[Rfam]
RNA: Small nucleolar RNA Z157/R69/R10
RNA sequence: UCGAGUGCGGUGAUGAGGCUAUUUUGUGGACUAGAGUUUCUGAUCUGGGUCUUGCACCCUGAAUCUGAUUGACAAACCCUUGGCUGUCUGAGCACUUAA
Numbered sequence: 001u002c003g004a005g006u007g008c009g010g011u012g013a014u015g016a017g018g019c020u021a022u023u024u025u026g027u028g029g030a031c032u033a034g035a036g037u038u039u040c041u042g043a044u045c046u047g048g049g050u051c052u053u054g055c056a057c058c059c060u061g062a063a064u065c066u067g068a069u070u071g072a073c074a075a076a077c078c079c080u081u082g083g084c085u086g087u088c089u090g091a092g093c094a095c096u097u098a099a
Stems, first nucleotide, its partner, number of pairs: 001099001003097006039068002044063001045061001047059003